This 110-nucleotide sequence from Alkaliphilus sp. B6464 belongs to the Rfam family "PyrR binding site". Taxonomically the source falls in Alkaliphilus (Bacteria, Clostridia, Peptostreptococcales, Natronincolaceae). This family represents the PyrR binding site and terminator structure. It is annotated as a cis-regulatory element.

Nucleotides: 110
Base pairs, nucleotide, nucleotide: 003037004036005035006034007033008032014029015028016027017026018025041069042068043067045065046064050060051059052058053057072106074104076102077101078100079099080098081097082096083095084094085093
Number, partner (000 for none) and nucleotide at each position: 001000u002000a003037a004036a005035u006034c007033u008032u009000u010000a011000a012000u013000g014029c015028a016027g017026u018025c019000c020000c021000g022000u023000g024000a025018g026017g027016c028015u029014g030000g031000c032008a033007a034006g035005g036004u037003u038000a039000u040000a041069a042068u043067a044000a045065u046064a047000g048000a049000c050060u051059u052058a053057g054000u055000u056000a057053c058052u059051a060050a061000u062000c063000a064046u065045a066000g067043u068042a069041u070000a071000a072106g073000u074104a075000u076102a077101a078100c079099u080098u081097c082096u083095u084094g085093c086000g087000c088000c089000u090000c091000a092000u093085g094084u095083a096082a097081g098080a099079a100078g101077u102076u103000u104074u105000u106072u107000u108000a109000u110000u